Shown here is an 89-nucleotide sequence from Pseudactinotalea sp. HY158, a member of the family "tRNA".
The family is grouped with related families in Rfam's "tRNA clan".
Rfam's curators write: Transfer RNA (tRNA) molecules are approximately 80 nucleotides in length.
RNA sequence: GGAGACGUCGCAUAGCCUGGUCGAGUGCGCAUCCCUGCUAAGGAUGUGAGGGUUCACGCCCUCCGUGGGUUCAAAUCCCACCGUCUCCG
Numbered sequence: 001g002g003a004g005a006c007g008u009c010g011c012a013u014a015g016c017c018u019g020g021u022c023g024a025g026u027g028c029g030c031a032u033c034c035c036u037g038c039u040a041a042g043g044a045u046g047u048g049a050g051g052g053u054u055c056a057c058g059c060c061c062u063c064c065g066u067g068g069g070u071u072c073a074a075a076u077c078c079c080a081c082c083g084u085c086u087c088c089g
Stems, first nucleotide, its partner, number of pairs: 001088007010028004030046005065081005